This 322-nucleotide sequence from Brachionus plicatilis belongs to the Rfam family "Nuclear RNase P". Rfam classes the family as a ribozyme. The base pairs follow the family's consensus structure, which is taken from published work. The match comes from Rfam's covariance-model search (96 bits). Rfam describes the family as follows. Ribonuclease P (RNase P) is a ubiquitous endoribonuclease, found in archaea, bacteria and eukarya as well as chloroplasts and mitochondria. Its best characterised activity is the generation of mature 5'-ends of tRNAs by cleaving the 5'-leader elements of precursor-tRNAs. Cellular RNase Ps are ribonucleoproteins. RNA from bacterial RNase Ps retains its catalytic activity in the absence of the protein subunit, i.e. it is a ribozyme.
RNA sequence: UCGGUAGGAUGCUUGUUAUAGGAUGCACAAAAAGUGUCUGAUCACUUAUUUAUUCUUGGGAAGGUCUGAGUGAAAAGCCGCUAGAAGACUCUAGAAGGGUCCUGCUUAAACGUCCUGGCGUUGCACAGAAAUUUCCAAUGUUUGGAUUACUUGAUCCGUGUUCUCGUAAGAGGCACACGAUUUUGUAUUUAAUCAAUACGAAUGAUGCUUUGGACACGGAUUUUAGUUGAGAAUGUGGCGUGGCUGGCUACUGCAGUGCGAUUAACAAGACGGUUUGUAGCAAUACAAUGCCGUAACUCAAUUCAGACUACACUCUUACCGA
Numbered sequence: 001u002c003g004g005u006a007g008g009a010u011g012c013u014u015g016u017u018a019u020a021g022g023a024u025g026c027a028c029a030a031a032a033a034g035u036g037u038c039u040g041a042u043c044a045c046u047u048a049u050u051u052a053u054u055c056u057u058g059g060g061a062a063g064g065u066c067u068g069a070g071u072g073a074a075a076a077g078c079c080g081c082u083a084g085a086a087g088a089c090u091c092u093a094g095a096a097g098g099g100u101c102c103u104g105c106u107u108a109a110a111c112g113u114c115c116u117g118g119c120g121u122u123g124c125a126c127a128g129a130a131a132u133u134u135c136c137a138a139u140g141u142u143u144g145g146a147u148u149a150c151u152u153g154a155u156c157c158g159u160g161u162u163c164u165c166g167u168a169a170g171a172g173g174c175a176c177a178c179g180a181u182u183u184u185g186u187a188u189u190u191a192a193u194c195a196a197u198a199c200g201a202a203u204g205a206u207g208c209u210u211u212g213g214a215c216a217c218g219g220a221u222u223u224u225a226g227u228u229g230a231g232a233a234u235g236u237g238g239c240g241u242g243g244c245u246g247g248c249u250a251c252u253g254c255a256g257u258g259c260g261a262u263u264a265a266c267a268a269g270a271c272g273g274u275u276u277g278u279a280g281c282a283a284u285a286c287a288a289u290g291c292c293g294u295a296a297c298u299c300a301a302u303u304c305a306g307a308c309u310a311c312a313c314u315c316u317u318a319c320c321g322a
Stems, first nucleotide, its partner, number of pairs: 001322004007316003012269007020057004032047005066306005076245004087101005102117001104115001107112001118241007135226001137224001270294005276288001